The family of this 144-nucleotide sequence from Parathalassolituus penaei is "Molybdenum/Tungsten riboswitch aptamer (Moco RNA motif)". Pairs were carried over by alignment from the consensus structure, which is taken from published work. For this family Rfam cites "Identification of 22 candidate structured RNAs in bacteria using the CMfinder comparative genomics pipeline" (Weinberg et al., Nucleic Acids Res, 2007).
RNA sequence: CUGGAGUCUGUUAACCGAGCCGCUGUUCACUAAACCCGCAGGGCAUGUAGCAGCAGCCGUGGCCGCCUCUGGCAGGUCACCAGGGUCCGAUGGGAAACCGUCUGGCCUCCCGCAUUUUUGGAAAGGUGUAACAAUGACAUUGCC
Numbered sequence: 001c002u003g004g005a006g007u008c009u010g011u012u013a014a015c016c017g018a019g020c021c022g023c024u025g026u027u028c029a030c031u032a033a034a035c036c037c038g039c040a041g042g043g044c045a046u047g048u049a050g051c052a053g054c055a056g057c058c059g060u061g062g063c064c065g066c067c068u069c070u071g072g073c074a075g076g077u078c079a080c081c082a083g084g085g086u087c088c089g090a091u092g093g094g095a096a097a098c099c100g101u102c103u104g105g106c107c108u109c110c111c112g113c114a115u116u117u118u119u120g121g122a123a124a125g126g127u128g129u130a131a132c133a134a135u136g137a138c139a140u141u142g143c144c
Stems, first nucleotide, its partner, number of pairs: 003138001006135001011130001014127003019057002022054005029048002035043003059080005083108005089102005109121002